RNA sequence: AGCCUCAUUCUACUGAAAAUGGGCACGUUGUUCACGGUGUCCAUAAACUGUUAAUGUGGCUAUAUUAAGAAUACAGGUUCUGCUUCUCGUACUGUAAUUUUAUUGCAGCGGUGACAAUGGGAUCUGUUAACACAU
Numbered sequence: 001a002g003c004c005u006c007a008u009u010c011u012a013c014u015g016a017a018a019a020u021g022g023g024c025a026c027g028u029u030g031u032u033c034a035c036g037g038u039g040u041c042c043a044u045a046a047a048c049u050g051u052u053a054a055u056g057u058g059g060c061u062a063u064a065u066u067a068a069g070a071a072u073a074c075a076g077g078u079u080c081u082g083c084u085u086c087u088c089g090u091a092c093u094g095u096a097a098u099u100u101u102a103u104u105g106c107a108g109c110g111g112u113g114a115c116a117a118u119g120g121g122a123u124c125u126g127u128u129a130a131c132a133c134a135u
Stems, first nucleotide, its partner, number of pairs: 002060003006056003020043007073127005087113001090110001092108001
The record is a 135-nucleotide sequence from Ovis aries, which matches "Small nucleolar RNA SNORA1" in Rfam.
Its family is annotated with RNA processing and nucleolus in the Gene Ontology.
From the family's description: ACA1 is a member of the H/ACA class of snoRNA that guide the sites of modification of uridines to pseudouridines.
The source organism's lineage runs through Eukaryota, Craniata, Artiodactyla, Pecora and Ovis.
The family's RNA type in Rfam is H/ACA-box small nucleolar RNA.
The base pairs follow the family's consensus structure, which was predicted with PFOLD.